Rfam assigns this 92-nucleotide RNA sequence from Pelotomaculum propionicicum to the family "Selenocysteine transfer RNA". A search with the family's covariance model found it, with a score of 72 bits. Taxonomically the source falls in Pelotomaculum (Bacteria, Bacillota, Clostridia, Eubacteriales). Pairs were carried over by alignment from the consensus structure, which is taken from published work.
RNA sequence: GGGGGUGGAUGGUGCCUGGUGGUGCCCCCAGUCUUCAAAACUGGUCGUUGGGCUGAUGAGGUCCAUGGUGGGUUCGAUUCCCACACACUCCC
Numbered sequence: 001g002g003g004g005g006u007g008g009a010u011g012g013u014g015c016c017u018g019g020u021g022g023u024g025c026c027c028c029c030a031g032u033c034u035u036c037a038a039a040a041c042u043g044g045u046c047g048u049u050g051g052g053c054u055g056a057u058g059a060g061g062u063c064c065a066u067g068g069u070g071g072g073u074u075c076g077a078u079u080c081c082c083a084c085a086c087a088c089u090c091c092c
Stems, first nucleotide, its partner, number of pairs: 001092007008084001011026006027047001028044005051064002069083004